[Rfam]
RNA sequence: CUACUUCCCAUUCACGAAAAAGCGCCUAUAUAAGUUUCUGCCGAGUUCGCUCGGCUAUGGUGAUAAAUUGCGAUGUGCAAUAGGUGCAGCGGACCCGGGGGCGGUACCCGGCAGCUCCACCAAAAUCUCUGGUUUUCAGAGGUCUUGGAGGGGCUGAACUAGGAUCGACGUGCGUUGAAAAGCAUUGUUUUUGCCCGGCAUGAAUAAGCCGUGAAAUGGUUCAUAACCAAUAGGUGCAAACGAUAACGAAGCACUUGCUCUCGCAGCGUAAUUUUGGGCCUCACGGUCUGAACUUACACUAAAAGAACGCGGCCGAACCGGCCGGGCAACAGAAAGGUUACAGC
Numbered sequence: 001c002u003a004c005u006u007c008c009c010a011u012u013c014a015c016g017a018a019a020a021a022g023c024g025c026c027u028a029u030a031u032a033a034g035u036u037u038c039u040g041c042c043g044a045g046u047u048c049g050c051u052c053g054g055c056u057a058u059g060g061u062g063a064u065a066a067a068u069u070g071c072g073a074u075g076u077g078c079a080a081u082a083g084g085u086g087c088a089g090c091g092g093a094c095c096c097g098g099g100g101g102c103g104g105u106a107c108c109c110g111g112c113a114g115c116u117c118c119a120c121c122a123a124a125a126u127c128u129c130u131g132g133u134u135u136u137c138a139g140a141g142g143u144c145u146u147g148g149a150g151g152g153g154c155u156g157a158a159c160u161a162g163g164a165u166c167g168a169c170g171u172g173c174g175u176u177g178a179a180a181a182g183c184a185u186u187g188u189u190u191u192u193g194c195c196c197g198g199c200a201u202g203a204a205u206a207a208g209c210c211g212u213g214a215a216a217u218g219g220u221u222c223a224u225a226a227c228c229a230a231u232a233g234g235u236g237c238a239a240a241c242g243a244u245a246a247c248g249a250a251g252c253a254c255u256u257g258c259u260c261u262c263g264c265a266g267c268g269u270a271a272u273u274u275u276g277g278g279c280c281u282c283a284c285g286g287u288c289u290g291a292a293c294u295u296a297c298a299c300u301a302a303a304a305g306a307a308c309g310c311g312g313c314c315g316a317a318c319c320g321g322c323c324g325g326g327c328a329a330c331a332g333a334a335a336g337g338u339u340a341c342a343g344c
Stems, first nucleotide, its partner, number of pairs: 040055005059195005070188007085174003089171003095111005112156007196211004201223003310324004315341001317339001319337001